Source information
A member of the RNA family "eL15-Euryarchaeota ribosomal protein leader", 85 nucleotides long.
RNA sequence: CCUGUCACAGAACAGGUCGGGAUGUGAACCGCGAGGUCGAAGAUCUCGCCGAGAUUGGAAAUCUCGCUACGGUUUGAACCACGCA
Number, nucleotide and partner (000 for none) at each position: 001c016002c015003u014004g013005u012006c000007a000008c000009a000010g000011a000012a005013c004014a003015g002016g001017u000018c000019g080020g079021g000022a000023u000024g000025u000026g075027a074028a073029c072030c071031g000032c000033g000034a000035g000036g000037u000038c000039g000040a000041a000042g000043a000044u000045c000046u000047c000048g000049c000050c000051g000052a000053g000054a000055u000056u000057g000058g000059a000060a000061a000062u000063c000064u000065c000066g000067c000068u000069a000070c000071g030072g029073u028074u027075u026076g000077a000078a000079c020080c019081a000082c000083g000084c000085a000